RNA: Group II catalytic intron D1-D4-3
RNA sequence: ACUUCCGCGAGGAAGGGUCUGAAGGAAGCCAGCGGCAAACCUGCGAGCCGACGAACAGAAACGUCAUAGAAGGCUGAGACCUCUGGGGUGAGUUGGCACAACACAACGAAACCCUUUGGUUCAAGAGGCACAGUAAAUGACGCGGUCGUGCAGGGAUAGUUCACGGU
Numbered sequence: 001a002c003u004u005c006c007g008c009g010a011g012g013a014a015g016g017g018u019c020u021g022a023a024g025g026a027a028g029c030c031a032g033c034g035g036c037a038a039a040c041c042u043g044c045g046a047g048c049c050g051a052c053g054a055a056c057a058g059a060a061a062c063g064u065c066a067u068a069g070a071a072g073g074c075u076g077a078g079a080c081c082u083c084u085g086g087g088g089u090g091a092g093u094u095g096g097c098a099c100a101a102c103a104c105a106a107c108g109a110a111a112c113c114c115u116u117u118g119g120u121u122c123a124a125g126a127g128g129c130a131c132a133g134u135a136a137a138u139g140a141c142g143c144g145g146u147c148g149u150g151c152a153g154g155g156a157u158a159g160u161u162c163a164c165g166g167u
Stems, first nucleotide, its partner, number of pairs: 002015005028167003035160002040154006047146004062142006073134003080128005086114004092107004